[Rfam]
RNA sequence: AGCUUUCUUCGGGGCAGGGUGAAAUUCCCAACCGGCGGUGAUCCUAUCAGGAAGAGGACCAGUUCCUCGCUCUCGAUAAGUCAGUCCGUGACCCGUACCGCAGCUUGUACAAGGCAGCUUGCCUUGGCGGUCCGGUGGACCUGGUGCAAUUCCGGGACCGACAGUAUAGUCUGGAUGGGAGAAGAGAGUG
Number, nucleotide and partner (000 for none) at each position: 001a000002g000003c188004u187005u186006u185007c184008u183009u182010c181011g000012g000013g000014g000015c000016a000017g029018g028019g027020u000021g000022a000023a000024a000025u000026u000027c019028c018029c017030a000031a170032c169033c160034g159035g089036c088037g087038g086039u000040g000041a000042u000043c000044c000045u000046a000047u000048c000049a000050g000051g000052a000053a000054g000055a000056g000057g000058a000059c000060c000061a000062g000063u000064u000065c000066c000067u000068c000069g000070c000071u000072c000073u000074c000075g000076a000077u000078a000079a000080g000081u000082c000083a000084g000085u000086c038087c037088g036089u035090g000091a000092c000093c135094c134095g000096u000097a000098c000099c000100g000101c000102a000103g000104c000105u000106u000107g000108u000109a000110c000111a000112a000113g000114g000115c000116a000117g000118c000119u000120u000121g000122c000123c000124u000125u000126g000127g000128c000129g000130g000131u000132c000133c000134g094135g093136u000137g000138g000139a000140c156141c155142u154143g153144g152145u000146g000147c000148a000149a000150u000151u000152c144153c143154g142155g141156g140157a000158c000159c034160g033161a000162c173163a172164g171165u000166a000167u000168a000169g032170u031171c164172u163173g162174g000175a000176u000177g000178g000179g000180a000181g010182a009183a008184g007185a006186g005187a004188g003189u000190g000